[Rfam]
RNA sequence: CUGCAUGUGUUGGCCUUGGGCCGUUGUUGUCCGCUCCAUCUCAGUGGAGAGUGGACACACACACACACACAUGCUAGAUAAACAGUGAACAACUGUGGAGUUAUCAGGGCCACCAGUCCUUCAAGGUCAGGCUGAGUUGGUAGUAUAAUACUCCGACACUC
Dot-bracket structure: ..((((((...................((((((((..............))))))))...........))))))......................((((........((..((((.(((........)))))).)...)).........)))).......
Overview
A member of the RNA family "Small nucleolar RNA U109" from Liparis tanakae, 161 nucleotides long. The family's consensus secondary structure was predicted with WAR. It is annotated as an H/ACA-box small nucleolar RNA. A reference for the family is Gu et al. (2005), "A novel experimental approach for systematic identification of box H/ACA snoRNAs from eukaryotes", Nucleic Acids Res. The organism belongs to Liparis, within Eukaryota. The match comes from Rfam's covariance-model search (44 bits).